Description:
BsrC: an 88-nucleotide RNA sequence from Paenibacillus stellifer. The organism belongs to Paenibacillus, within Bacteria. Pairs were carried over by alignment from the consensus structure, which was predicted with CMfinder. Rfam describes the family as follows. The 301 nucleotide sequence from Kouji Nakamura has been trimmed to a highly conserved ~85 nucleotide long core to form this family.
[Rfam]
RNA sequence: UGCAUCCAAAACGAUAAAAGCCCUGCCUCUCUUCUAUCCUUGCGGCUCCAAUGACCGCUCCAGUGUGAAUCGGAAAAUCUACAGCUUC
Numbered sequence: 001u002g003c004a005u006c007c008a009a010a011a012c013g014a015u016a017a018a019a020g021c022c023c024u025g026c027c028u029c030u031c032u033u034c035u036a037u038c039c040u041u042g043c044g045g046c047u048c049c050a051a052u053g054a055c056c057g058c059u060c061c062a063g064u065g066u067g068a069a070u071c072g073g074a075a076a077a078u079c080u081a082c083a084g085c086u087u088c
Base pairs, nucleotide, nucleotide: 035067036066039063040062042058043057044056045055047053